[Rfam]
RNA sequence: UUCCCGUCACAACGGCUUCCUGGCGUGGCGGGCUAGCACAAUGGAGCA
Numbered sequence: 001u002u003c004c005c006g007u008c009a010c011a012a013c014g015g016c017u018u019c020c021u022g023g024c025g026u027g028g029c030g031g032g033c034u035a036g037c038a039c040a041a042u043g044g045a046g047c048a
Base pairs, nucleotide, nucleotide: 004031005030006029007028008027009026010025013022014021015047016046017045019044020043
RNA: SAM/SAH riboswitch aptamer